[Rfam]
A member of the RNA family "Small nucleolar RNA snoM1" from Drosophila erecta, 99 nucleotides long. The sequence is in the family's curated seed alignment. Lineage of the source: Eukaryota > Opisthokonta > Protostomia > Muscomorpha > Sophophora. From the family's description: M1 is a member of the H/ACA class of snoRNAs which are thought to guide the sites of modification of uridines to pseudouridines. snoM1 seems to be found exclusively in Drosophila species.

RNA sequence: AAUUCAAUGAUUUCAACUUCACUGCUGACAAGCCACGCCUCACCGCCUCGGAGGGAUUGCCCCUAUUCCCUAACAAAUAGAGCAUAUUCUAAUUAACAC
Numbered sequence: 001a002a003u004u005c006a007a008u009g010a011u012u013u014c015a016a017c018u019u020c021a022c023u024g025c026u027g028a029c030a031a032g033c034c035a036c037g038c039c040u041c042a043c044c045g046c047c048u049c050g051g052a053g054g055g056a057u058u059g060c061c062c063c064u065a066u067u068c069c070c071u072a073a074c075a076a077a078u079a080g081a082g083c084a085u086a087u088u089c090u091a092a093u094u095a096a097c098a099c
Stems, first nucleotide, its partner, number of pairs: 001094003006088004010057004017053004064072002
Dot-bracket structure: (((..((((((((...((((.............................))))))))......((.....))............))))...))).....